[Rfam]
A member of the RNA family "MIR9563 microRNA precursor family" from Brassica carinata, 124 nucleotides long. The family has 2 seed sequences and 5,832 matches in Rfam 15.1. Taxonomically the source falls in Brassica (Eukaryota, Mesangiospermae, Gunneridae, Brassicales).
RNA sequence: GGAAGUUAAGGAACUGUUUUUUAAUUUUUAACUAAAAAAGUUAAGAACUGGUUCUUAAAUCCUUAUUUAAGAACCGGUUUUUAGCUUUUUUAGUUAAAAAUUAAAAAACAGUUUUUUAACUUUC
Numbered sequence: 001g002g003a004a005g006u007u008a009a010g011g012a013a014c015u016g017u018u019u020u021u022u023a024a025u026u027u028u029u030a031a032c033u034a035a036a037a038a039a040g041u042u043a044a045g046a047a048c049u050g051g052u053u054c055u056u057a058a059a060u061c062c063u064u065a066u067u068u069a070a071g072a073a074c075c076g077g078u079u080u081u082u083a084g085c086u087u088u089u090u091u092a093g094u095u096a097a098a099a100a101u102u103a104a105a106a107a108a109c110a111g112u113u114u115u116u117u118a119a120c121u122u123u124c
Base pairs, nucleotide, nucleotide: 001124002123003122004121005120006119007118008117009116010115011114012113013112014111015110016109017108018107019106020105021104022103023102024101025100026099027098028097029096030095031094032093033092034091035090036089037088038087039086041084042083043082044081045080046079047078